[Rfam]
RNA sequence: ACGAUAUUCCGCUGGUAGAUAUGUCUAUGUAUGAAUAUUUG
Numbered sequence: 001a002c003g004a005u006a007u008u009c010c011g012c013u014g015g016u017a018g019a020u021a022u023g024u025c026u027a028u029g030u031a032u033g034a035a036u037a038u039u040u041g
Base pairs, nucleotide, nucleotide: 003039004038005037006036007035008034009033013031014030015028016027017026018025
A member of the RNA family "Ribosomal protein L19 leader" from Jeotgalibaca porci, 41 nucleotides long. This family is a putative r-protein leader autoregulatory structure found in B. subtilis and other low-GC Gram-positive bacteria. It is located in the 5' untranslated regions of mRNAs encoding ribosomal protein L19 (rplS). Lineage of the source: Bacteria > Bacillati > Bacillota > Lactobacillales > Jeotgalibaca.